[Rfam]
RNA sequence: CUGGCUCCGGUUCACGCACCUCCGCUGAGGUGCGACCCGGCGGCC
Numbered sequence: 001c002u003g004g005c006u007c008c009g010g011u012u013c014a015c016g017c018a019c020c021u022c023c024g025c026u027g028a029g030g031u032g033c034g035a036c037c038c039g040g041c042g043g044c045c
Stems, first nucleotide, its partner, number of pairs: 003045003007040004015034008
RNA: L31-Actinobacteria ribosomal protein leader